[Rfam]
RNA sequence: ACUAUGCACUAAGUAUUAGUGCAUUAGCUAAUAUUAUAUCGAAUAUAGCUAAUGCACUAAUACUUAGUGCAUAGU
Number, nucleotide and partner (000 for none) at each position: 001a075002c074003u073004a072005u071006g070007c069008a000009c000010u066011a065012a064013g063014u062015a061016u060017u059018a058019g057020u000021g000022c000023a000024u052025u051026a050027g049028c048029u047030a046031a000032u000033a000034u000035u000036a000037u000038a000039u000040c000041g000042a000043a000044u000045a000046u030047a029048g028049c027050u026051a025052a024053u000054g000055c000056a000057c019058u018059a017060a016061u015062a014063c013064u012065u011066a010067g000068u000069g007070c006071a005072u004073a003074g002075u001
mir-252 microRNA precursor family: a 75-nucleotide RNA sequence from Nicotiana attenuata. The base pairs follow the family's consensus structure, which was predicted with RNAalifold.